[Rfam]
Source information:
Rfam assigns this 356-nucleotide sequence from bacterium 1XD8-76 to the family "Bacterial RNase P class A". The base pairs follow the family's consensus structure, which is taken from published work. It scores 329 bits against the family's covariance model. Its family is annotated with tRNA processing, dimeric ribonuclease P complex and ribonuclease P activity in the Gene Ontology.
RNA sequence: UAAGCAGACCAGAUGGCCGCGCCUGCUCGUGCAGGUGAGGAAAGUCCGGGCUUCACAGGGCAGGAUGCCGGAUAACGUCCGGUGGAGGUGACUCCAAGGCCAGUGCAACAGAAACAAACCGCCAGCCGGAUUCCGGCUGGUAAGGGUGGAAAGGCAGUGUAAGAGACUACCGUCCGUCUGGCAACAGGCGGGGCUAUGUAAACCCCAUCCGAAGCAAGACCAAGCAGAGAACGAUAAACCGGCCCGGUUUGUUCUCAGGUGGGUCGCUGGAGACUGUUGGCGACAGCAGUCCAAGAUAGAUGGCCAUCGCCCUGCAUCGCAGGGAACAGAACCCGGCUUACCGGUCUGCUUAUAAG
Numbered sequence: 001u002a003a004g005c006a007g008a009c010c011a012g013a014u015g016g017c018c019g020c021g022c023c024u025g026c027u028c029g030u031g032c033a034g035g036u037g038a039g040g041a042a043a044g045u046c047c048g049g050g051c052u053u054c055a056c057a058g059g060g061c062a063g064g065a066u067g068c069c070g071g072a073u074a075a076c077g078u079c080c081g082g083u084g085g086a087g088g089u090g091a092c093u094c095c096a097a098g099g100c101c102a103g104u105g106c107a108a109c110a111g112a113a114a115c116a117a118a119c120c121g122c123c124a125g126c127c128g129g130a131u132u133c134c135g136g137c138u139g140g141u142a143a144g145g146g147u148g149g150a151a152a153g154g155c156a157g158u159g160u161a162a163g164a165g166a167c168u169a170c171c172g173u174c175c176g177u178c179u180g181g182c183a184a185c186a187g188g189c190g191g192g193g194c195u196a197u198g199u200a201a202a203c204c205c206c207a208u209c210c211g212a213a214g215c216a217a218g219a220c221c222a223a224g225c226a227g228a229g230a231a232c233g234a235u236a237a238a239c240c241g242g243c244c245c246g247g248u249u250u251g252u253u254c255u256c257a258g259g260u261g262g263g264u265c266g267c268u269g270g271a272g273a274c275u276g277u278u279g280g281c282g283a284c285a286g287c288a289g290u291c292c293a294a295g296a297u298a299g300a301u302g303g304c305c306a307u308c309g310c311c312c313u314g315c316a317u318c319g320c321a322g323g324g325a326a327c328a329g330a331a332c333c334c335g336g337c338u339u340a341c342c343g344g345u346c347u348g349c350u351u352a353u354a355a356g
Stems, first nucleotide, its partner, number of pairs: 001352010012308007020037007042339003046336005051214004058245004063210005068082005083097001084095004098205002103203002105199003119145002121141009153171002156168003172194001173192008218265004227256006236250005272291008
Ribonuclease P (RNase P) is a ubiquitous endoribonuclease, found in archaea, bacteria and eukarya as well as chloroplasts and mitochondria.